[Rfam]
RNA sequence: UUAUAUUCGUAAUGCGUUAGGGAUUGAAGCGACAUCCUUUUUAUUUAUCAAAAUAAAAAGAUACAGCGAAAAGCCCGACGUGAG
Numbered sequence: 001u002u003a004u005a006u007u008c009g010u011a012a013u014g015c016g017u018u019a020g021g022g023a024u025u026g027a028a029g030c031g032a033c034a035u036c037c038u039u040u041u042u043a044u045u046u047a048u049c050a051a052a053a054u055a056a057a058a059a060g061a062u063a064c065a066g067c068g069a070a071a072a073g074c075c076c077g078a079c080g081u082g083a084g
Base pairs, nucleotide, nucleotide: 020076021075022074024072025071029067030066034062035061036060040057041056042055043054044053045052046051

Flavo-1 RNA: an 84-nucleotide RNA sequence from Lutibacter profundi.
By type it is a small RNA.
Lineage of the source: Bacteria > Pseudomonadati > Flavobacteriia > Flavobacteriaceae > Lutibacter.